[Rfam]
RNA sequence: UCCUUGGAGAAUUGCACCAAACUAGAGUAGAAUAAGAACUUAUUUGAAAUGGAAUUCCAUGAAUAGGAAA
Numbered sequence: 001u002c003c004u005u006g007g008a009g010a011a012u013u014g015c016a017c018c019a020a021a022c023u024a025g026a027g028u029a030g031a032a033u034a035a036g037a038a039c040u041u042a043u044u045u046g047a048a049a050u051g052g053a054a055u056u057c058c059a060u061g062a063a064u065a066g067g068a069a070a
Base pairs, nucleotide, nucleotide: 001068002067003066004065009057010056011055012054013053022052023051024050030045031044032043035040